Shown here is a 60-nucleotide RNA sequence from Thermoanaerobacter brockii, a member of the family "Fluoride riboswitch aptamer (crcB RNA motif)".
RNA sequence: UUAAAUAACGGUGAUGAAGCUCACCUUAUUGCCGUGAAGGCUAAUGGCUUCUACGCGCUU
Numbered sequence: 001u002u003a004a005a006u007a008a009c010g011g012u013g014a015u016g017a018a019g020c021u022c023a024c025c026u027u028a029u030u031g032c033c034g035u036g037a038a039g040g041c042u043a044a045u046g047g048c049u050u051c052u053a054c055g056c057g058c059u060u
Base pairs, nucleotide, nucleotide: 010025011024012023013022016051017050018049019048020047021046031041032040033039
It scores 40 bits against the family's covariance model. The organism belongs to Thermoanaerobacter brockii, within Bacteria.